This 145-nucleotide RNA from Allolucifera butyrica belongs to the Rfam family "c-di-AMP riboswitch aptamer (ydaO/yuaA leader)". The source organism's lineage runs through Bacteria, Bacillota, Negativicutes, Veillonellaceae and Allolucifera. This family represents a conserved RNA structure found upstream of the ydaO and yuaA genes in Bacillus subtilis and related genes in other bacteria. The ydaO/yuaA element is thought to act as a genetic 'off' switch for the ydaO and yuaA genes in its native state. It is believed that the element may be triggered during osmotic shock leading to activation of ydaO, a predicted amino acid transporter gene, and members of the yuaA-yubG operon which code for KtrA and KtrB K+ transporters. The match comes from Rfam's covariance-model search (83 bits).
RNA sequence: GCAGCUAGAAAGCCGAAUCAUGCUCAGGUACGGGGGAACCAAUUUUGGGGGUGAAGUUUUUCCGGUAUAGGUUUGGACACCGGAAAAUAGGGGGCCUGCAACCCUAACCCGUCAGCUAACCUCGGAGGCUAUGGAGAGGAGAUAA
Numbered sequence: 001g002c003a004g005c006u007a008g009a010a011a012g013c014c015g016a017a018u019c020a021u022g023c024u025c026a027g028g029u030a031c032g033g034g035g036g037a038a039c040c041a042a043u044u045u046u047g048g049g050g051g052u053g054a055a056g057u058u059u060u061u062c063c064g065g066u067a068u069a070g071g072u073u074u075g076g077a078c079a080c081c082g083g084a085a086a087a088u089a090g091g092g093g094g095c096c097u098g099c100a101a102c103c104c105u106a107a108c109c110c111g112u113c114a115g116c117u118a119a120c121c122u123c124g125g126a127g128g129c130u131a132u133g134g135a136g137a138g139g140a141g142a143u144a145a
Stems, first nucleotide, its partner, number of pairs: 011130004019028001031124005040048001049110003057087006090104003